[Rfam]
RNA sequence: AAUUUUAAUGAAGCGCCAGACGCGUGGAUGCGGGCAGACCCCCGUGGGUUCUGCCCCCUGCCAGAGCAUCCCCUGCGUGACGAGGAGAAGUGUGAUCGAAGGUUUCGGCGGAUGCACUUCCGGCUGCAAAACGGGCAGUCGUAAGGCGGUGUACAAAGCGCGAUGCGGGUGUCAGCACCCCGUGGAGAAUCGCGGCAAAAGCACCGCUGUUUCCGUAA
Numbered sequence: 001a002a003u004u005u006u007a008a009u010g011a012a013g014c015g016c017c018a019g020a021c022g023c024g025u026g027g028a029u030g031c032g033g034g035c036a037g038a039c040c041c042c043c044g045u046g047g048g049u050u051c052u053g054c055c056c057c058c059u060g061c062c063a064g065a066g067c068a069u070c071c072c073c074u075g076c077g078u079g080a081c082g083a084g085g086a087g088a089a090g091u092g093u094g095a096u097c098g099a100a101g102g103u104u105u106c107g108g109c110g111g112a113u114g115c116a117c118u119u120c121c122g123g124c125u126g127c128a129a130a131a132c133g134g135g136c137a138g139u140c141g142u143a144a145g146g147c148g149g150u151g152u153a154c155a156a157a158g159c160g161c162g163a164u165g166c167g168g169g170u171g172u173c174a175g176c177a178c179c180c181c182g183u184g185g186a187g188a189a190u191c192g193c194g195g196c197a198a199a200a201g202c203a204c205c206g207c208u209g210u211u212u213c214c215g216u217a218a
Base pairs, nucleotide, nucleotide: 020078021077022076023075024074026072027071087120088119089118090117091116096108097107098106099105121141122140123139124138125137126136145208146207147206148205149204150203151202159194160193161192162191163190164189
The family of this 218-nucleotide sequence from Caproicibacterium amylolyticum is "glmS glucosamine-6-phosphate activated ribozyme aptamer". The family's RNA type in Rfam is riboswitch. Lineage of the source: Bacteria > Bacillati > Bacillota > Eubacteriales > Caproicibacterium. This entry contains a glucosamine-6-phosphate activated ribozyme that is found in the mRNA for GlmS. GlmS is an enzyme that uses fructose-6-phosphate and glutamine to generate glucosamine-6-phosphate. A search with the family's covariance model found it, with a score of 76 bits. Its family is annotated with catalytic activity and regulation of gene expression in the Gene Ontology.